[Rfam]
RNA: Proteobacterial sRNA psRNA2
Organism: Massilia sp. NR 4-1
RNA sequence: GGGUUACUCCCGCGCUCACGCGCUUGGUUGAUACAGAUUCGCACCUAUAUCAACCCGGGUAACCCCACCCUUGGGCAAGGCCCAUCUGUCAGAUCAAGUCGGAACUACUACAAAUUAGAAGACCGGCGGCAUCCACCCCAAAUCGGACUAUCGCCAUUCUUACGACGAAUUGUUCCUUUUGGAUUUGGAUCAAGUCCAGUUG
Numbered sequence: 001g002g003g004u005u006a007c008u009c010c011c012g013c014g015c016u017c018a019c020g021c022g023c024u025u026g027g028u029u030g031a032u033a034c035a036g037a038u039u040c041g042c043a044c045c046u047a048u049a050u051c052a053a054c055c056c057g058g059g060u061a062a063c064c065c066c067a068c069c070c071u072u073g074g075g076c077a078a079g080g081c082c083c084a085u086c087u088g089u090c091a092g093a094u095c096a097a098g099u100c101g102g103a104a105c106u107a108c109u110a111c112a113a114a115u116u117a118g119a120a121g122a123c124c125g126g127c128g129g130c131a132u133c134c135a136c137c138c139c140a141a142a143u144c145g146g147a148c149u150a151u152c153g154c155c156a157u158u159c160u161u162a163c164g165a166c167g168a169a170u171u172g173u174u175c176c177u178u179u180u181g182g183a184u185u186u187g188g189a190u191c192a193a194g195u196c197c198a199g200u201u202g
Base pairs, nucleotide, nucleotide: 001065002064003063004062005061006060007059009058010057012023013022014021015020026055027054028053029052030051031050032049033048035046036045073159074158075157079152080151088105089104090102092100093099094098108146109145112143176202179199180198181197182196183195184193185192